[Rfam]
RNA sequence: GUCCGGCCGUCGGCAGAACCGUUACCAUUACUAAACUCAGUAAUGGUAACGGUUUCCCCGCCGGCCGCCGA
Numbered sequence: 001g002u003c004c005g006g007c008c009g010u011c012g013g014c015a016g017a018a019c020c021g022u023u024a025c026c027a028u029u030a031c032u033a034a035a036c037u038c039a040g041u042a043a044u045g046g047u048a049a050c051g052g053u054u055u056c057c058c059c060g061c062c063g064g065c066c067g068c069c070g071a
Stems, first nucleotide, its partner, number of pairs: 007064003011060003017054004022049011

Shown here is a 71-nucleotide sequence from Mionectes macconnelli, a member of the family "mir-451 microRNA precursor family". The literature on the family includes a 2010 paper in Leuk Lymphoma by Bruchova-Votavova et al., "miR-451 enhances erythroid differentiation in K562 cells". Rfam 15.1 lists 658 matches to the family in 500 species. The match comes from Rfam's covariance-model search (67 bits).